[Rfam]
RNA sequence: UUGAAGGCGUGGAGACUGAAGUUCUCUAUAUCCACAGAACAGUGUGGCACAGGCAACGGCAGUGCAGCUUUUCCACUGUCUCCCCAGUGUGCCUCAGUCCUGGGCUGGGUGGCCAUACUGCAGGUGAGAGGGCUGUUCAGUCUCCAUGCCCUCGAUCUUUGGCCUCU
Numbered sequence: 001u002u003g004a005a006g007g008c009g010u011g012g013a014g015a016c017u018g019a020a021g022u023u024c025u026c027u028a029u030a031u032c033c034a035c036a037g038a039a040c041a042g043u044g045u046g047g048c049a050c051a052g053g054c055a056a057c058g059g060c061a062g063u064g065c066a067g068c069u070u071u072u073c074c075a076c077u078g079u080c081u082c083c084c085c086a087g088u089g090u091g092c093c094u095c096a097g098u099c100c101u102g103g104g105c106u107g108g109g110u111g112g113c114c115a116u117a118c119u120g121c122a123g124g125u126g127a128g129a130g131g132g133c134u135g136u137u138c139a140g141u142c143u144c145c146a147u148g149c150c151c152u153c154g155a156u157c158u159u160u161g162g163c164c165u166c167u
Stems, first nucleotide, its partner, number of pairs: 002154003006150002010146011023132002026130002029126004035102003039098001044094001047092005058080005106120003
Dot-bracket structure: .(((.((..(((((((((((..((.((.((((..(((.(....(..(((((......(((((.............))))).......))))).)...).)))...(((.........)))..))))..))))...)))))))))))..)).))).............
Shown here is a 167-nucleotide RNA from Pipistrellus kuhlii, a member of the family "TUC338". The family's consensus secondary structure was predicted with WAR. On this family, see Braconi et al., Proc Natl Acad Sci U S A 2011: "Expression and functional role of a transcribed noncoding RNA with an ultraconserved element in hepatocellular carcinoma". The match comes from Rfam's covariance-model search (130 bits). By type it is a cis-regulatory element.